This 79-nucleotide sequence from Cocos nucifera belongs to the Rfam family "Small nucleolar RNA snoR53Y".
RNA sequence: AUUCCCUAUGAUGUUUGUCUGAACCAUGCUAAUGCUGAUGUGCAUUGAUGAACUCAUUAAGUGUUAUCCUGAGGGAAUC
Numbered sequence: 001a002u003u004c005c006c007u008a009u010g011a012u013g014u015u016u017g018u019c020u021g022a023a024c025c026a027u028g029c030u031a032a033u034g035c036u037g038a039u040g041u042g043c044a045u046u047g048a049u050g051a052a053c054u055c056a057u058u059a060a061g062u063g064u065u066a067u068c069c070u071g072a073g074g075g076a077a078u079c
Base pairs, nucleotide, nucleotide: 001078002077003076004075005074006073007072
Gene Ontology terms of the family: RNA processing and nucleolus. The family's RNA type in Rfam is C/D-box small nucleolar RNA. Lineage of the source: Eukaryota > Streptophyta > Liliopsida > Cocoseae > Cocos. On this family, see Brown et al., RNA 2001: "Multiple snoRNA gene clusters from Arabidopsis". A search with the family's covariance model found it, with a score of 60 bits.